[Rfam]
RNA sequence: AGUUUUGCACGCGACUGGCGAUAGGCUGGCGGCUUUAGAAACAAAUUCAAAGCUUGCCCGGCUGACGUGGAAUACCACUGGGAAGCGUGCCGCACUGUUUAACUGGUGCGUUCAGCCGUUCGCCUGGGCAGCCCUG
Dot-bracket structure: ......((((((..(([[[[[.............................................((((....))))..))..))))))......................(.(((..]]]]]..))).).....
RNA: ZMP/ZTP riboswitch aptamer (pfl RNA motif)